[Rfam]
RNA: RNase MRP
RNA sequence: GGGUGUCCUGAAGACCUGCUAUCUAGGCCACGUGCUGAGGACGUCAGUUCCUCUAGGGCGCUAGAGCCCGCCUAGGGGAAAGUCCCCGGACCCCGGGCAGAGAGUGUCGCACGCUGCGCAGCGUGCAGUGACCCGCCUCGCAGGCUCACGUUCUCCCCGCCGAGAAGCCCUCCGGGCUGAGCGGGUGGGCGCGGGGUGGGCUGCCCGUCAUUUCCACAGUAACGCAGGUAGUGCACACAGCCCCUCUGCGGGCUACAGCACCAACAGAACGGGGCUCAUUCUCAGAACACC
Numbered sequence: 001g002g003g004u005g006u007c008c009u010g011a012a013g014a015c016c017u018g019c020u021a022u023c024u025a026g027g028c029c030a031c032g033u034g035c036u037g038a039g040g041a042c043g044u045c046a047g048u049u050c051c052u053c054u055a056g057g058g059c060g061c062u063a064g065a066g067c068c069c070g071c072c073u074a075g076g077g078g079a080a081a082g083u084c085c086c087c088g089g090a091c092c093c094c095g096g097g098c099a100g101a102g103a104g105u106g107u108c109g110c111a112c113g114c115u116g117c118g119c120a121g122c123g124u125g126c127a128g129u130g131a132c133c134c135g136c137c138u139c140g141c142a143g144g145c146u147c148a149c150g151u152u153c154u155c156c157c158c159g160c161c162g163a164g165a166a167g168c169c170c171u172c173c174g175g176g177c178u179g180a181g182c183g184g185g186u187g188g189g190c191g192c193g194g195g196g197u198g199g200g201c202u203g204c205c206c207g208u209c210a211u212u213u214c215c216a217c218a219g220u221a222a223c224g225c226a227g228g229u230a231g232u233g234c235a236c237a238c239a240g241c242c243c244c245u246c247u248g249c250g251g252g253c254u255a256c257a258g259c260a261c262c263a264a265c266a267g268a269a270c271g272g273g274g275c276u277c278a279u280u281c282u283c284a285g286a287a288c289a290c291c
Stems, first nucleotide, its partner, number of pairs: 002291005008285004014229006022076007037053005081276002084274004096108004109126006128201002136196006145189004157184004167177004231261004